mir-252 microRNA precursor family: an 82-nucleotide sequence from Oncorhynchus tshawytscha. The match comes from Rfam's covariance-model search (46 bits). The family is grouped with related families in Rfam's "mir-252 microRNA precursor family". NCBI's taxonomy places the organism under Eukaryota, Deuterostomia, Euteleostomi, Salmonidae, Oncorhynchus. For this family Rfam cites "Direct sequencing and expression analysis of a large number of miRNAs in Aedes aegypti and a multi-species survey of novel mosquito miRNAs" (Li et al., BMC Genomics, 2009). Rfam 15.1 lists 422 matches to the family in 306 species. Its family is annotated with miRNA-mediated post-transcriptional gene silencing and RISC complex in the Gene Ontology.
RNA sequence: GUAUAUUACUAAGGACUAGUUCACCAGGGGUAUACUAGUCCUUAGUAACAUACCCCUGGUGAACUAGUCCUUAUUAAUAUCA
Numbered sequence: 001g002u003a004u005a006u007u008a009c010u011a012a013g014g015a016c017u018a019g020u021u022c023a024c025c026a027g028g029g030g031u032a033u034a035c036u037a038g039u040c041c042u043u044a045g046u047a048a049c050a051u052a053c054c055c056c057u058g059g060u061g062a063a064c065u066a067g068u069c070c071u072u073a074u075u076a077a078u079a080u081c082a
Stems, first nucleotide, its partner, number of pairs: 003080005010073010024059009